[Rfam]
RNA: FMN riboswitch aptamer (RFN element)
Organism: Deinococcus sp. Leaf326
RNA sequence: GACCUCUUUCGGGGCGGGGUGAGACUCCCCACCGGCGGUGACUCCGACAGGACAGCCCGCGAAGCCUGCUUAAAUCCAUGAACGCGCAGGCCCGAUCUGGUGAAACUCCAGAGCCGACGGUAAGACACGGACUGACCCCAGGGCAGCCCGUAAGUCCGGAUGGGAGAAAGGGGAA
Numbered sequence: 001g002a003c004c005u006c007u008u009u010c011g012g013g014g015c016g017g018g019g020u021g022a023g024a025c026u027c028c029c030c031a032c033c034g035g036c037g038g039u040g041a042c043u044c045c046g047a048c049a050g051g052a053c054a055g056c057c058c059g060c061g062a063a064g065c066c067u068g069c070u071u072a073a074a075u076c077c078a079u080g081a082a083c084g085c086g087c088a089g090g091c092c093c094g095a096u097c098u099g100g101u102g103a104a105a106c107u108c109c110a111g112a113g114c115c116g117a118c119g120g121u122a123a124g125a126c127a128c129g130g131a132c133u134g135a136c137c138c139c140a141g142g143g144c145a146g147c148c149c150g151u152a153a154g155u156c157c158g159g160a161u162g163g164g165a166g167a168a169a170g171g172g173g174a175a
Stems, first nucleotide, its partner, number of pairs: 003173008017029003033116002035060004055114002064091006096112005118158003